[Rfam]
RNA: Small nucleolar RNA SNORD19
RNA sequence: GAGGUAUGAGGAAAACAUCUGAACAGUCUGAUUAUCAGUGAAGACUGAUAAGAUCCAACUCUGACCUCAAAGCUAGU
Numbered sequence: 001g002a003g004g005u006a007u008g009a010g011g012a013a014a015a016c017a018u019c020u021g022a023a024c025a026g027u028c029u030g031a032u033u034a035u036c037a038g039u040g041a042a043g044a045c046u047g048a049u050a051a052g053a054u055c056c057a058a059c060u061c062u063g064a065c066c067u068c069a070a071a072g073c074u075a076g077u
Base pairs, nucleotide, nucleotide: 001068002067003066004065